Overview
A member of the RNA family "Bacteroidales small SRP" from Mucinivorans hirudinis, 104 nucleotides long. The literature on the family includes a 2020 paper in Nat Commun by Ryan et al., "A high-resolution transcriptome map identifies small RNA regulation of metabolism in the gut microbe Bacteroides thetaiotaomicron". The family's consensus secondary structure is taken from published work. Its Rfam clan is "SRP clan". The family's RNA type in Rfam is non-coding RNA gene. The sequence is in the family's curated seed alignment.
RNA sequence: UGUCCUCGGGUAAGUCUUACACGACCAGCUCCUGCUGAAUCCCCCAGGCGCGGAAGCGAGCAAGGGUAGGUGGUUGAGCGGUGCGAUGUAAGUAGCUUACCCUU
Numbered sequence: 001u002g003u004c005c006u007c008g009g010g011u012a013a014g015u016c017u018u019a020c021a022c023g024a025c026c027a028g029c030u031c032c033u034g035c036u037g038a039a040u041c042c043c044c045c046a047g048g049c050g051c052g053g054a055a056g057c058g059a060g061c062a063a064g065g066g067u068a069g070g071u072g073g074u075u076g077a078g079c080g081g082u083g084c085g086a087u088g089u090a091a092g093u094a095g096c097u098u099a100c101c102c103u104u
Base pairs, nucleotide, nucleotide: 008102009101010100011099012098013097014096015095017091018090019089020088021087022085023084024082025081